Rfam assigns this 66-nucleotide sequence from Pedobacter sp. BMA to the family "Fluoride riboswitch aptamer (crcB RNA motif)".
The source organism's lineage runs through Bacteria, Bacteroidota, Sphingobacteriales, Sphingobacteriaceae and Pedobacter.
The base pairs follow the family's consensus structure, which is taken from published work.
A reference for the family is Baker et al. (2012), "Widespread genetic switches and toxicity resistance proteins for fluoride", Science.
[Rfam]
RNA sequence: UUGACUUACGGAAAUGGUGUCCUUCCGAUUCAACCGCUUUUCAAAGCUGAUGGCGCCUGCAAAGUA
Numbered sequence: 001u002u003g004a005c006u007u008a009c010g011g012a013a014a015u016g017g018u019g020u021c022c023u024u025c026c027g028a029u030u031c032a033a034c035c036g037c038u039u040u041u042c043a044a045a046g047c048u049g050a051u052g053g054c055g056c057c058u059g060c061a062a063a064g065u066a
Stems, first nucleotide, its partner, number of pairs: 010026004016057006036047004